[Rfam]
Nucleotides: 114
Base pairs, nucleotide, nucleotide: 007108008107011104012103013102014101017098018097023092024091025090026089028087029086030085031084032083033082034081035080
Number, partner (000 for none) and nucleotide at each position: 001000a002000g003000g004000g005000g006000u007108u008107c009000u010000a011104c012103a013102g014101g015000g016000u017098c018097g019000u020000c021000c022000c023092g024091a025090g026089a027000c028087c029086a030085c031084a032083u033082g034081a035080g036000a037000a038000u039000g040000c041000a042000u043000a044000u045000u046000u047000u048000a049000u050000u051000u052000g053000c054000u055000u056000g057000u058000g059000g060000c061000c062000u063000u064000g065000u066000a067000u068000g069000a070000g071000a072000a073000u074000g075000c076000u077000c078000a079000g080035c081034u082033c083032a084031u085030g086029u087028g088000u089026u090025c091024u092023c093000a094000g095000g096000u097018c098017g099000c100000c101014c102013c103012u104011g105000c106000u107008g108007g109000a110000c111000u112000u113000u114000u
This 114-nucleotide RNA from Phaseolus vulgaris belongs to the Rfam family "MIR398 microRNA precursor family". The match comes from Rfam's covariance-model search (61 bits). Gene Ontology terms of the family: RISC complex and miRNA-mediated post-transcriptional gene silencing. The literature on the family includes a 2004 paper in Mol Cell by Jones-Rhoades and Bartel, "Computational identification of plant microRNAs and their targets, including a stress-induced miRNA".